[Rfam]
The record is a 130-nucleotide RNA sequence from Odocoileus virginianus, which matches "Small nucleolar RNA SNORA3/SNORA45 family" in Rfam.
From the family's description: The members of this family belong to the H/ACA class of snoRNAs which are thought to guide the sites of modification of uridines to pseudouridines. This family includes mouse snoMBI-28 and human homologues ACA3 (SNORA3) and ACA3-2 (SNORA45). Both ACA3 and ACA3-2 share the same host gene.
Rfam 15.1 lists 2,080 matches to the family in 639 species.
Its Rfam clan is "SNORA3 clan".
Pairs were carried over by alignment from the consensus structure, which was predicted with RNAalifold.
The organism belongs to Odocoileus virginianus, within Eukaryota.

RNA sequence: CUCGAGACUACAAUCACAUCCUGACAGCUCUUGGUCCUGGUGUGCUAGAGUCCUUGGAGAAAAUCUGCUGCUCUUGAUUCACUGGUGAGGGCAAUCAUUGCCCCCAGCAGUGCCCAGAUCAGACACACGC
Dot-bracket structure: .((((((((..(..((((((..(((........)))..)))))).)..))).)))))..........(((.(((.(...(((((..(.((((.......)))).)..))))).).))).)))........
Numbered sequence: 001c002u003c004g005a006g007a008c009u010a011c012a013a014u015c016a017c018a019u020c021c022u023g024a025c026a027g028c029u030c031u032u033g034g035u036c037c038u039g040g041u042g043u044g045c046u047a048g049a050g051u052c053c054u055u056g057g058a059g060a061a062a063a064u065c066u067g068c069u070g071c072u073c074u075u076g077a078u079u080c081a082c083u084g085g086u087g088a089g090g091g092c093a094a095u096c097a098u099u100g101c102c103c104c105c106a107g108c109a110g111u112g113c114c115c116a117g118a119u120c121a122g123a124c125a126c127a128c129g130c
Stems, first nucleotide, its partner, number of pairs: 002057005007051003012046001015044006023036003068122003072118003076114001080112005087105001089103004